Shown here is a 77-nucleotide sequence from Alligator sinensis, a member of the family "Mammalian CPEB3 ribozyme". About the family: The mammalian CPEB3 ribozyme is a self cleaving RNA located in the second intron of the CPEB3 gene which belongs to a family of genes regulating messenger RNA polyadenylation. This ribozyme is highly conserved and found only in mammals. Rfam links the family to the GO term RNA nuclease activity. A search with the family's covariance model found it, with a score of 45 bits.
[Rfam]
RNA sequence: GGUUGCAAGUUUGAGGCCAGAGAAGAAGCACUUGCAGUGUGGCCCUGCCAGAUUCCAAUGAAUCUGCAGAUUCUGCU
Numbered sequence: 001g002g003u004u005g006c007a008a009g010u011u012u013g014a015g016g017c018c019a020g021a022g023a024a025g026a027a028g029c030a031c032u033u034g035c036a037g038u039g040u041g042g043c044c045c046u047g048c049c050a051g052a053u054u055c056c057a058a059u060g061a062a063u064c065u066g067c068a069g070a071u072u073c074u075g076c077u
Stems, first nucleotide, its partner, number of pairs: 013045001015044004021077002024074004028040003049066007

Pairs were carried over by alignment from the consensus structure, which is taken from published work.